A member of the RNA family "Bacterial large subunit ribosomal RNA" from Palleronia marisminoris, 511 nucleotides of a longer RNA. NCBI's taxonomy places the organism under Bacteria, Pseudomonadati, Alphaproteobacteria, Rhodobacterales, Palleronia. The base pairs follow the family's consensus structure, which is taken from published work. It scores 2658 bits against the family's covariance model.
RNA sequence: CUCCGCGAAAUCUAUUUAGGUAGAGCGUCAGACGAAUACCUACGGGGGUAGAGCACUGGAUGGGUAAUGGGGCCCCACAGGCUUACUGAUCCUAACCAAACUCCGAAUACCGUAGAGUACUAUCUGGCAGACACACAUCGGGUGCUAACGUCCGGUGUGGAGAGGGAAACAACCCUGACCUGCAGCUAAGGCCCCCAAUUCGUGGCUAAGUGGGAAAGCAUGUGAGACGGCCAAAACAACCAGGAGGUUGGCUUAGAAGCAGCCAUCCUUUAAAGAUAGCGUAACAGCUCACUGGUCUAGACAAGCUGUCUUGCGGCGAAGAUGUAACGGGGCUCAAGCCACGAGCCGAAGCUCAGGACUGCAUAGCAGUGGUAGCGGAGCGUAGUGUGACAUAGCUCACUGUCUCCUUAGCGGGACGAUCUUCCUCGGAGGGUCUGUCCGUGUUGGAGACAAGGAGCUUUCUGUGAAGCCGGCGCGUGAGCGAUCCGGUGGAGAGAUCACUAGCGAGAAU
Numbered sequence: 001c002u003c004c005g006c007g008a009a010a011u012c013u014a015u016u017u018a019g020g021u022a023g024a025g026c027g028u029c030a031g032a033c034g035a036a037u038a039c040c041u042a043c044g045g046g047g048g049u050a051g052a053g054c055a056c057u058g059g060a061u062g063g064g065u066a067a068u069g070g071g072g073c074c075c076c077a078c079a080g081g082c083u084u085a086c087u088g089a090u091c092c093u094a095a096c097c098a099a100a101c102u103c104c105g106a107a108u109a110c111c112g113u114a115g116a117g118u119a120c121u122a123u124c125u126g127g128c129a130g131a132c133a134c135a136c137a138u139c140g141g142g143u144g145c146u147a148a149c150g151u152c153c154g155g156u157g158u159g160g161a162g163a164g165g166g167a168a169a170c171a172a173c174c175c176u177g178a179c180c181u182g183c184a185g186c187u188a189a190g191g192c193c194c195c196c197a198a199u200u201c202g203u204g205g206c207u208a209a210g211u212g213g214g215a216a217a218g219c220a221u222g223u224g225a226g227a228c229g230g231c232c233a234a235a236a237c238a239a240c241c242a243g244g245a246g247g248u249u250g251g252c253u254u255a256g257a258a259g260c261a262g263c264c265a266u267c268c269u270u271u272a273a274a275g276a277u278a279g280c281g282u283a284a285c286a287g288c289u290c291a292c293u294g295g296u297c298u299a300g301a302c303a304a305g306c307u308g309u310c311u312u313g314c315g316g317c318g319a320a321g322a323u324g325u326a327a328c329g330g331g332g333c334u335c336a337a338g339c340c341a342c343g344a345g346c347c348g349a350a351g352c353u354c355a356g357g358a359c360u361g362c363a364u365a366g367c368a369g370u371g372g373u374a375g376c377g378g379a380g381c382g383u384a385g386u387g388u389g390a391c392a393u394a395g396c397u398c399a400c401u402g403u404c405u406c407c408u409u410a411g412c413g414g415g416a417c418g419a420u421c422u423u424c425c426u427c428g429g430a431g432g433g434u435c436u437g438u439c440c441g442u443g444u445u446g447g448a449g450a451c452a453a454g455g456a457g458c459u460u461u462c463u464g465u466g467a468a469g470c471c472g473g474c475g476c477g478u479g480a481g482c483g484a485u486c487c488g489g490u491g492g493a494g495a496g497a498u499c500a501c502u503a504g505c506g507a508g509a510a511u
Stems, first nucleotide, its partner, number of pairs: 001380006011024005026130001027128006036121001040115006051104001052102002057098003061094004069086001070084005134159010164175003179357004184353003190347003199344001201343006218317002222314010239296005245269003250264003270274001275290001279288002358370005381506001383503005